[Rfam]
RNA: Archaeal large subunit ribosomal RNA, nucleotides 1720 to 2076
RNA sequence: GGGAAUAAUGGACGCGAGGGAACUCGGCCAAAUAGCUCCGUAUCUUAGGUAGAAGGAGUGCCUAUUCCGAGAGGGAAUAGGUCGCAGUGGCAAGGGGACCCCGACUGUUUACCAAAAACACAGAUCGCUGCUAGUUCGUAAGGAUGUGUAUAGCGGUUGAAACCUGCCCAGUGUCGGUACCUGAAAAUCCCGUACAAGGGAAAGAAGGGCCGAUAAACGGCGGGGGUAACUAUGACCCUCUUAAGGUAGCGUAAUACCUAGCCGCUUAAUUGGCGGCUUGCAUGAAGGUUCAACGUGAGUCCCACUGUCCCCGCGUUCAGCCCCGUGAAAUUGAUGCACUGGUGCACAAUCCAGUCU
Number, nucleotide and partner (000 for none) at each position: 001g324002g323003g322004a000005a000006u000007a000008a000009u319010g318011g317012a316013c315014g314015c313016g312017a000018g310019g309020g308021a000022a000023c000024u000025c000026g000027g000028c000029c000030a000031a000032a000033u000034a000035g059036c058037u057038c056039c055040g000041u000042a000043u000044c049045u000046u000047a000048g000049g044050u000051a000052g000053a000054a000055g039056g038057a037058g036059u035060g082061c081062c080063u079064a078065u077066u076067c075068c074069g000070a000071g000072a000073g000074g068075g067076a066077a065078u064079a063080g062081g061082u060083c087084g000085c000086a000087g083088u000089g000090g000091c000092a000093a000094g000095g303096g302097g301098a300099c299100c000101c297102c295103g294104a000105c000106u120107g119108u118109u000110u000111a000112c000113c000114a000115a000116a000117a000118a108119c107120a106121c000122a000123g158124a157125u156126c155127g154128c153129u152130g151131c148132u000133a000134g145135u144136u143137c142138g000139u000140a000141a000142g137143g136144a135145u134146g000147u000148g131149u000150a000151u130152a129153g128154c127155g126156g125157u124158u123159g000160a000161a290162a289163c288164c287165u000166g221167c220168c219169c000170a000171g218172u217173g214174u213175c212176g211177g210178u000179a000180c209181c208182u207183g000184a000185a000186a000187a000188u201189c200190c199191c198192g000193u000194a000195c000196a000197a000198g191199g190200g189201a188202a000203a000204g000205a000206a000207g182208g181209g180210c177211c176212g175213a174214u173215a000216a000217a172218c171219g168220g167221c166222g240223g239224g238225g237226g236227u235228a000229a000230c000231u000232a000233u000234g000235a227236c226237c225238c224239u223240c222241u245242u000243a000244a000245g241246g000247u000248a000249g000250c000251g000252u000253a000254a000255u000256a000257c000258c000259u000260a000261g277262c276263c275264g274265c273266u272267u000268a000269a000270u000271u000272g266273g265274c264275g263276g262277c261278u000279u000280g000281c000282a000283u000284g000285a000286a000287g164288g163289u162290u161291c000292a000293a000294c103295g102296u000297g101298a000299g099300u098301c097302c096303c095304a000305c000306u000307g000308u020309c019310c018311c000312c016313g015314c014315g013316u012317u011318c010319a009320g000321c000322c003323c002324c001325g000326u000327g000328a000329a000330a000331u000332u000333g000334a000335u000336g000337c000338a355339c354340u353341g352342g351343u000344g000345c000346a000347c000348a000349a000350u000351c342352c341353a340354g339355u338356c000357u000